[Rfam]
RNA sequence: CCAUGGUGGCUUUUUUGGUGGACAGAUGUAUAGGUCGUGCAUUUCUGGACCGGUGGCGUGGUUGGUGACUCAAUACCCUGCCUCCAGGCG
Numbered sequence: 001c002c003a004u005g006g007u008g009g010c011u012u013u014u015u016u017g018g019u020g021g022a023c024a025g026a027u028g029u030a031u032a033g034g035u036c037g038u039g040c041a042u043u044u045c046u047g048g049a050c051c052g053g054u055g056g057c058g059u060g061g062u063u064g065g066u067g068a069c070u071c072a073a074u075a076c077c078c079u080g081c082c083u084c085c086a087g088g089c090g
Stems, first nucleotide, its partner, number of pairs: 004087001006085001008084002018079001020078002028069002031065001034062007
The record is a 90-nucleotide RNA sequence from Chlorocebus sabaeus, which matches "NoRC associated RNA, pRNA" in Rfam.
The literature on the family includes a 2008 paper in EMBO Rep by Mayer et al., "The structure of NoRC-associated RNA is crucial for targeting the chromatin remodelling complex NoRC to the nucleolus".
NCBI's taxonomy places the organism under Eukaryota, Theria, Haplorrhini, Simiiformes, Chlorocebus.
The family's consensus secondary structure is taken from published work.
Its family is annotated with chromatin remodeling in the Gene Ontology.